RNA sequence: ACUAAUGUCAAAGGGGAGUAGCGUUGGAGUGAAUUAAUUGCUCCAAAAUAAAGUCGUCAUUACAUGAUGAAAAUCAUCGGCUUUAUUGACAAGAAAUUGUUAAGCGAGACCUUUGCCCAUGCGGUAGAGGUCUCGCUU
Numbered sequence: 001a002c003u004a005a006u007g008u009c010a011a012a013g014g015g016g017a018g019u020a021g022c023g024u025u026g027g028a029g030u031g032a033a034u035u036a037a038u039u040g041c042u043c044c045a046a047a048a049u050a051a052a053g054u055c056g057u058c059a060u061u062a063c064a065u066g067a068u069g070a071a072a073a074u075c076a077u078c079g080g081c082u083u084u085a086u087u088g089a090c091a092a093g094a095a096a097u098u099g100u101u102a103a104g105c106g107a108g109a110c111c112u113u114u115g116c117c118c119a120u121g122c123g124g125u126a127g128a129g130g131u132c133u134c135g136c137u138u
Stems, first nucleotide, its partner, number of pairs: 025045003047087010064077005
This 138-nucleotide sequence from Oceanobacillus halophilus belongs to the Rfam family "Manganese Mn2+ riboswitch aptamer (yybP-ykoY)". It scores 56 bits against the family's covariance model. Pairs were carried over by alignment from the consensus structure. NCBI's taxonomy places the organism under Bacteria, Bacillati, Caryophanales, Bacillaceae, Oceanobacillus.